[Rfam]
Annotation
The record is a 76-nucleotide RNA sequence, which matches "Small nucleolar RNA SNORD28" in Rfam. The sequence is in the family's curated seed alignment. The family's RNA type in Rfam is C/D-box small nucleolar RNA.
RNA sequence: GUCAGAUGAUUUGAAAUGAUGACACUGAACACUCCGUGAAGGUGUGAAUUUAUAGCAUGUUAGAGUUCUGAUGGCA
Numbered sequence: 001g002u003c004a005g006a007u008g009a010u011u012u013g014a015a016a017u018g019a020u021g022a023c024a025c026u027g028a029a030c031a032c033u034c035c036g037u038g039a040a041g042g043u044g045u046g047a048a049u050u051u052a053u054a055g056c057a058u059g060u061u062a063g064a065g066u067u068c069u070g071a072u073g074g075c076a
Stems, first nucleotide, its partner, number of pairs: 001075004